[Rfam]
RNA sequence: GGAGAGGUCGCGUAGCCCGGUUUAGCGCGCGCGCCUGGAGAGCGCGUAACCCAAAAGGUUCGAGGGUUCGAAUCCCUCCCUCUCCG
Numbered sequence: 001g002g003a004g005a006g007g008u009c010g011c012g013u014a015g016c017c018c019g020g021u022u023u024a025g026c027g028c029g030c031g032c033g034c035c036u037g038g039a040g041a042g043c044g045c046g047u048a049a050c051c052c053a054a055a056a057g058g059u060u061c062g063a064g065g066g067u068u069c070g071a072a073u074c075c076c077u078c079c080c081u082c083u084c085c086g
Stems, first nucleotide, its partner, number of pairs: 001085007010028004030046005062078005
tRNA: an 86-nucleotide sequence from Candidatus Velamenicoccus archaeovorus. By type it is a transfer RNA. The source organism's lineage runs through Bacteria, Pseudomonadati, Candidatus Omnitrophota and Candidatus Velamenicoccus.